[Rfam]
RNA: Group II catalytic intron D1-D4-3
RNA sequence: UCCAUCGCGAAGUGGAAUCUGAAGGAAGUCGGCGGCAAAUCUCUGGUCUGGCGGACAGAAACCACAUAUAGGCAGUGCAAGGAGGAAAAGGUUGCGCAUCAAACUGAAGUCCAAUAACUACCCGGACCAAGCACUGUAGAUGUGGCAGAUAGAUGGAAAGAAAGAUUGUGUU
Numbered sequence: 001u002c003c004a005u006c007g008c009g010a011a012g013u014g015g016a017a018u019c020u021g022a023a024g025g026a027a028g029u030c031g032g033c034g035g036c037a038a039a040u041c042u043c044u045g046g047u048c049u050g051g052c053g054g055a056c057a058g059a060a061a062c063c064a065c066a067u068a069u070a071g072g073c074a075g076u077g078c079a080a081g082g083a084g085g086a087a088a089a090g091g092u093u094g095c096g097c098a099u100c101a102a103a104c105u106g107a108a109g110u111c112c113a114a115u116a117a118c119u120a121c122c123c124g125g126a127c128c129a130a131g132c133a134c135u136g137u138a139g140a141u142g143u144g145g146c147a148g149a150u151a152g153a154u155g156g157a158a159a160g161a162a163a164g165a166u167u168g169u170g171u172u
Stems, first nucleotide, its partner, number of pairs: 001016005028172001030170002036164001040159001042157004046150005062145006072137003076133003081128002084112003090105004